[Rfam]
A member of the RNA family "Lysine riboswitch aptamer" from Thalassotalea marina, 193 nucleotides long. For this family Rfam cites "The L box regulon: Lysine sensing by leader RNAs of bacterial lysine biosynthesis genes" (Grundy et al., Proc Natl Acad Sci U S A, 2003). Pairs were carried over by alignment from the consensus structure, which is taken from published work.

RNA sequence: UGUACCAGAAGAGGUGCGGUAGCCAGGUAGUUGACAAGAGGAACCACAAUUCCUACGACUGUUAAUGAGGGGGACUACCGCCGAGGACAAUUUGUGUGUGGCACAAGUUUGUUCGGUCACUAAGGUUGAAUCCUUAGGGCUGUCACCUCUGCUUACUUGUGUUGAGCAGAUAUGGUGGAGAGCUUCUGGCUGG
Numbered sequence: 001u002g003u004a005c006c007a008g009a010a011g012a013g014g015u016g017c018g019g020u021a022g023c024c025a026g027g028u029a030g031u032u033g034a035c036a037a038g039a040g041g042a043a044c045c046a047c048a049a050u051u052c053c054u055a056c057g058a059c060u061g062u063u064a065a066u067g068a069g070g071g072g073g074a075c076u077a078c079c080g081c082c083g084a085g086g087a088c089a090a091u092u093u094g095u096g097u098g099u100g101g102c103a104c105a106a107g108u109u110u111g112u113u114c115g116g117u118c119a120c121u122a123a124g125g126u127u128g129a130a131u132c133c134u135u136a137g138g139g140c141u142g143u144c145a146c147c148u149c150u151g152c153u154u155a156c157u158u159g160u161g162u163u164g165a166g167c168a169g170a171u172a173u174g175g176u177g178g179a180g181a182g183c184u185u186c187u188g189g190c191u192g193g
Stems, first nucleotide, its partner, number of pairs: 006188006016081007024073001030066007085114004089109008115141004120137006143178005